[Rfam]
RNA sequence: CCUUGGGCUAAAGCCCAAGGCUACAAUAACUGCCGUCCCUACGGGACU
Numbered sequence: 001c002c003u004u005g006g007g008c009u010a011a012a013g014c015c016c017a018a019g020g021c022u023a024c025a026a027u028a029a030c031u032g033c034c035g036u037c038c039c040u041a042c043g044g045g046a047c048u
Stems, first nucleotide, its partner, number of pairs: 001020008035047005